The family of this 49-nucleotide RNA is "Na+ riboswitch aptamer (DUF1646)".

RNA sequence: GGUUGGAAAGGAAACUGUUUCAAGAUUUUUGCUUUAUGGGUGGGGAGCU
Numbered sequence: 001g002g003u004u005g006g007a008a009a010g011g012a013a014a015c016u017g018u019u020u021c022a023a024g025a026u027u028u029u030u031g032c033u034u035u036a037u038g039g040g041u042g043g044g045g046a047g048c049u
Stems, first nucleotide, its partner, number of pairs: 003023003006019002009016002031048005
On this family, see White et al., Nat Chem Biol 2022: "Na(+) riboswitches regulate genes for diverse physiological processes in bacteria". Its family is annotated with sodium ion binding and regulation of gene expression in the Gene Ontology.